[Rfam]
RNA sequence: CUCGGGUGGGGGAGUCCCUCAUGCCAGAUUGCGAGAGGGUGCAGGCCAGGUUGAGGGACCCCACUGAUGCCUC
Number, nucleotide and partner (000 for none) at each position: 001c000002u000003c000004g070005g068006g000007u066008g065009g064010g000011g062012g061013a000014g059015u058016c057017c056018c055019u054020c053021a052022u000023g000024c049025c000026a000027g046028a000029u044030u043031g042032c041033g040034a000035g000036a000037g000038g000039g000040u033041g032042c031043a030044g029045g000046c027047c000048a000049g024050g000051u000052u021053g020054a019055g018056g017057g016058a015059c014060c000061c012062c011063a000064c009065u008066g007067a000068u005069g000070c004071c000072u000073c000
The family of this 73-nucleotide RNA from Pipistrellus kuhlii is "mir-9193 microRNA precursor family". The organism belongs to Pipistrellus, within Eukaryota. It scores 57 bits against the family's covariance model. Rfam 15.1 lists 6,008 matches to the family in 8 species. Pairs were carried over by alignment from the consensus structure, which was predicted with RNAalifold.